[Rfam]
About this RNA
Shown here is a 96-nucleotide RNA from Pyrococcus woesei, a member of the family "SscA RNA". On this family, see Klein et al., Proc Natl Acad Sci U S A 2002: "Noncoding RNA genes identified in AT-rich hyperthermophiles". From the family's description: The SscA ncRNA gene was identified computationally in AT-rich hyperthermophiles using QRNA. SscA stands for Secondary Structure Conserved A. SscA is 97 nucleotides in length and is of unknown function. It is annotated as a non-coding RNA gene. Pairs were carried over by alignment from the consensus structure, which was predicted with PFOLD.

RNA sequence: GAGCUCAAUGAAGCCCCCUCAACUAAAGGCGGGUUUCCCGCCUGAGGGGGCUAUGUGCGAAAGCUUUAAAAAGUAAGUUCAAAAGUAGGGUUAGGC
Dot-bracket structure: ...(.......((((((((((......((((((...))))))))))))))))....).......................................